mir-263 microRNA precursor family: an 82-nucleotide RNA from Anisakis simplex. Rfam links the family to the GO terms RISC complex and miRNA-mediated post-transcriptional gene silencing. On this family, see Li et al., BMC Genomics 2009: "Direct sequencing and expression analysis of a large number of miRNAs in Aedes aegypti and a multi-species survey of novel mosquito miRNAs". The family's consensus secondary structure was predicted with RNAalifold. A search with the family's covariance model found it, with a score of 53 bits.

RNA sequence: GCGUAUCACUCAAUGGCACUAGAUGAAUUCACGGUCCAUUUGUAAUUUUCCGUGUAUUCGCCAGUUCCAUAGAGUUACGCUA
Numbered sequence: 001g002c003g004u005a006u007c008a009c010u011c012a013a014u015g016g017c018a019c020u021a022g023a024u025g026a027a028u029u030c031a032c033g034g035u036c037c038a039u040u041u042g043u044a045a046u047u048u049u050c051c052g053u054g055u056a057u058u059c060g061c062c063a064g065u066u067c068c069a070u071a072g073a074g075u076u077a078c079g080c081u082a
Stems, first nucleotide, its partner, number of pairs: 003080002006077001008075003013070004018065001020063001022061001025058002030054005